[Rfam]
The family of this 45-nucleotide sequence is "Plastid-rpl16 group II-D1 intron".
RNA sequence: GAGCUUCGAGUCAAUAAAGACUAAGAAGAUUGACUCAAGAAUAAA
Numbered sequence: 001g002a003g004c005u006u007c008g009a010g011u012c013a014a015u016a017a018a019g020a021c022u023a024a025g026a027a028g029a030u031u032g033a034c035u036c037a038a039g040a041a042u043a044a045a
Base pairs, nucleotide, nucleotide: 005039006038008036009035010034011033012032013031014030015029

Rfam links the family to the GO term Group II intron splicing.
Plastid-rpl16 is a non-coding RNA (ncRNA) recognised in plastids. It was recognised in and intronic region of a ribosome rpl16 gene.
For this family Rfam cites "Retrograde signaling in plants: A critical review focusing on the GUN pathway and beyond" (Richter et al., Plant Commun, 2023).
Pairs were carried over by alignment from the consensus structure, which was predicted with LocARNA.
The sequence is in the family's curated seed alignment.